[Rfam]
RNA: Eukaryotic large subunit ribosomal RNA, nucleotides 929 to 1418
RNA sequence: CCCUCCGAAGUUUCCCCCAGGAUAGCUGGAGCUUGAUCAGUUUUAUCGGGUAAAGCGAAUGAUUAGAGGUUCGGGGGAUGAAACAUCCUUCACCUAUUCUCAAACUUUAAAUAGGUAAGACGUGCCGGUUGCUUAAUUGAACCGUUGCAUUCAAUGUGAGCUCCAAGUGGGCCAUUUUUGGUAAGCAGAACUGGCGAUGCGGGAUGAACCGAUAGUCGAGUUAAGGUGCCAAACUGCGCGCUAACCUAGAUCCCACAAAGGGUGUUGAUUGAUAUAAACAGCAGGACGGUGGUCAUGGAAGUCGAAAUCCGCUAAGGAGUGUGUAACAACUCACCUGCCGAAUCAAUUAGCCCCGAAAAUGGAUGGCGCUGAAGCGCGUGACCUAGACUCGGCCAUGGAUGCAAGUGUGAUGCCUCCAUGAGUAGGAGGGCGUGGGUGUCGAGACUAAGCCCCUGGCGUGAGCCUGGGUGAAUCGGCAUCUAGUGCAGAU
Numbered sequence: 001c002c003c004u005c006c007g008a009a010g011u012u013u014c015c016c017c018c019a020g021g022a023u024a025g026c027u028g029g030a031g032c033u034u035g036a037u038c039a040g041u042u043u044u045a046u047c048g049g050g051u052a053a054a055g056c057g058a059a060u061g062a063u064u065a066g067a068g069g070u071u072c073g074g075g076g077g078a079u080g081a082a083a084c085a086u087c088c089u090u091c092a093c094c095u096a097u098u099c100u101c102a103a104a105c106u107u108u109a110a111a112u113a114g115g116u117a118a119g120a121c122g123u124g125c126c127g128g129u130u131g132c133u134u135a136a137u138u139g140a141a142c143c144g145u146u147g148c149a150u151u152c153a154a155u156g157u158g159a160g161c162u163c164c165a166a167g168u169g170g171g172c173c174a175u176u177u178u179u180g181g182u183a184a185g186c187a188g189a190a191c192u193g194g195c196g197a198u199g200c201g202g203g204a205u206g207a208a209c210c211g212a213u214a215g216u217c218g219a220g221u222u223a224a225g226g227u228g229c230c231a232a233a234c235u236g237c238g239c240g241c242u243a244a245c246c247u248a249g250a251u252c253c254c255a256c257a258a259a260g261g262g263u264g265u266u267g268a269u270u271g272a273u274a275u276a277a278a279c280a281g282c283a284g285g286a287c288g289g290u291g292g293u294c295a296u297g298g299a300a301g302u303c304g305a306a307a308u309c310c311g312c313u314a315a316g317g318a319g320u321g322u323g324u325a326a327c328a329a330c331u332c333a334c335c336u337g338c339c340g341a342a343u344c345a346a347u348u349a350g351c352c353c354c355g356a357a358a359a360u361g362g363a364u365g366g367c368g369c370u371g372a373a374g375c376g377c378g379u380g381a382c383c384u385a386g387a388c389u390c391g392g393c394c395a396u397g398g399a400u401g402c403a404a405g406u407g408u409g410a411u412g413c414c415u416c417c418a419u420g421a422g423u424a425g426g427a428g429g430g431c432g433u434g435g436g437u438g439u440c441g442a443g444a445c446u447a448a449g450c451c452c453c454u455g456g457c458g459u460g461a462g463c464c465u466g467g468g469u470g471a472a473u474c475g476g477c478a479u480c481u482a483g484u485g486c487a488g489a490u
Stems, first nucleotide, its partner, number of pairs: 001430006011024001013022003027165007041120007053108001054106002060102003065097001067095003073091005079085001122148003126144005171195004176190005200211003215393005221387001225383003234380001236379001239376003260354003264351010281338005287311003293305002312316001317332001321330002394420006401413002431485001433482010449469002455464003